[Rfam]
RNA sequence: UGUCUCCUCCACCCCUUCAAAAGGUGGAUUCAAGCCCCGGCACCCUGGUGCCGGGGCUUUUUUU
Numbered sequence: 001u002g003u004c005u006c007c008u009c010c011a012c013c014c015c016u017u018c019a020a021a022a023g024g025u026g027g028a029u030u031c032a033a034g035c036c037c038c039g040g041c042a043c044c045c046u047g048g049u050g051c052c053g054g055g056g057c058u059u060u061u062u063u064u
Stems, first nucleotide, its partner, number of pairs: 008028006034057008